[Rfam]
ZMP/ZTP riboswitch aptamer (pfl RNA motif): a 90-nucleotide RNA sequence from Blastococcus sp. TF02-09. The base pairs follow the family's consensus structure, which is taken from published work.

RNA sequence: GAAGCAGGCCGUGACUGGCGCUGGAGGUGGGACGACCACCGGGGAGCGGCCUCGUCGACCCGACGUCCGCCGCGCGCCUGGGCUCCAUCC
Numbered sequence: 001g002a003a004g005c006a007g008g009c010c011g012u013g014a015c016u017g018g019c020g021c022u023g024g025a026g027g028u029g030g031g032a033c034g035a036c037c038a039c040c041g042g043g044g045a046g047c048g049g050c051c052u053c054g055u056c057g058a059c060c061c062g063a064c065g066u067c068c069g070c071c072g073c074g075c076g077c078c079u080g081g082g083c084u085c086c087a088u089c090c
Base pairs, nucleotide, nucleotide: 003055006052007051008050009049010048011047012046015043016042017078018077019076020075021074027039028038029037030036069083070082071081
Dot-bracket structure: ..(..(((((((..(([[[[[.....((((.....))))..))..)))))))..).............(((..]]]]]..))).......